[Rfam]
RNA sequence: CCAGUUGGCCGGGCGGCCGCGCUGUACCAAUGCCGAAAGGCGGUAUGGUGAGGAAAGUCCGGGCUCCACGGAAACACGGUGCCGGAUAAUGUCCGGCGGGGGUGACCCCAGGGAAAGUGCCACAGAAAGCAAACCGCCCCGCUUUCAUGACGUCUGGUCGCCGAAAAGGCGUGAGAGGCAGACGCCAUGAUGGCGGGGUAAGGGUGAAAGGGUGGGGUAAGAGCCCACCGCGGAUGCGGCAACGCAGACGGCAAGGUAAACCCCACCGGGAGCAAGACCGAAUAGGGAUGACGCGGCGCUUCGGCACCAGCCUGUUUCCGGGCCAGUCAUCCGGGUGGGUUGCGCGAGGCAGUGCGCAAGCACUGUCCCAGAUGAAUGGUCGCCACGUCCUUUCCUAGCGGUAAGGGCCAUACAGAACCCGGCUUACAGGCCAACUGGUUUU
Numbered sequence: 001c002c003a004g005u006u007g008g009c010c011g012g013g014c015g016g017c018c019g020c021g022c023u024g025u026a027c028c029a030a031u032g033c034c035g036a037a038a039g040g041c042g043g044u045a046u047g048g049u050g051a052g053g054a055a056a057g058u059c060c061g062g063g064c065u066c067c068a069c070g071g072a073a074a075c076a077c078g079g080u081g082c083c084g085g086a087u088a089a090u091g092u093c094c095g096g097c098g099g100g101g102g103u104g105a106c107c108c109c110a111g112g113g114a115a116a117g118u119g120c121c122a123c124a125g126a127a128a129g130c131a132a133a134c135c136g137c138c139c140c141g142c143u144u145u146c147a148u149g150a151c152g153u154c155u156g157g158u159c160g161c162c163g164a165a166a167a168g169g170c171g172u173g174a175g176a177g178g179c180a181g182a183c184g185c186c187a188u189g190a191u192g193g194c195g196g197g198g199u200a201a202g203g204g205u206g207a208a209a210g211g212g213u214g215g216g217g218u219a220a221g222a223g224c225c226c227a228c229c230g231c232g233g234a235u236g237c238g239g240c241a242a243c244g245c246a247g248a249c250g251g252c253a254a255g256g257u258a259a260a261c262c263c264c265a266c267c268g269g270g271a272g273c274a275a276g277a278c279c280g281a282a283u284a285g286g287g288a289u290g291a292c293g294c295g296g297c298g299c300u301u302c303g304g305c306a307c308c309a310g311c312c313u314g315u316u317u318c319c320g321g322g323c324c325a326g327u328c329a330u331c332c333g334g335g336u337g338g339g340u341u342g343c344g345c346g347a348g349g350c351a352g353u354g355c356g357c358a359a360g361c362a363c364u365g366u367c368c369c370a371g372a373u374g375a376a377u378g379g380u381c382g383c384c385a386c387g388u389c390c391u392u393u394c395c396u397a398g399c400g401g402u403a404a405g406g407g408c409c410a411u412a413c414a415g416a417a418c419c420c421g422g423c424u425u426a427c428a429g430g431c432c433a434a435c436u437g438g439u440u441u442u
Stems, first nucleotide, its partner, number of pairs: 001438010011427001012384007020050009055425003059422005064272004073317002077268005082096005097111001098109004112263002117261002119257003134203002136199008211229006230252001231250002235246004276341004286332006310323004348367008

Rfam assigns this 442-nucleotide sequence from Martelella alba to the family "Bacterial RNase P class A".
Pairs were carried over by alignment from the consensus structure, which is taken from published work.
A search with the family's covariance model found it, with a score of 313 bits.
Rfam classes the family as a ribozyme.
NCBI's taxonomy places the organism under Bacteria, Pseudomonadota, Alphaproteobacteria, Hyphomicrobiales, Martelella.